[Rfam]
RNA sequence: AAACACACACACACACACAUAUAUAUAUAUAUGUGUGUGUGUGUGUGUUUUUUUUUUUAAAUGUGGGAGGAAGUAAAUAUAUAUUUACUUCCUCCCACAUUU
Numbered sequence: 001a002a003a004c005a006c007a008c009a010c011a012c013a014c015a016c017a018c019a020u021a022u023a024u025a026u027a028u029a030u031a032u033g034u035g036u037g038u039g040u041g042u043g044u045g046u047g048u049u050u051u052u053u054u055u056u057u058u059a060a061a062u063g064u065g066g067g068a069g070g071a072a073g074u075a076a077a078u079a080u081a082u083a084u085u086u087a088c089u090u091c092c093u094c095c096c097a098c099a100u101u102u
Stems, first nucleotide, its partner, number of pairs: 002049001004047005012039005018033006063098015
Shown here is a 102-nucleotide sequence from Sinocyclocheilus rhinocerous, a member of the family "Listeria sRNA rli61". A reference for the family is Toledo-Arana et al. (2009), "The Listeria transcriptional landscape from saprophytism to virulence", Nature.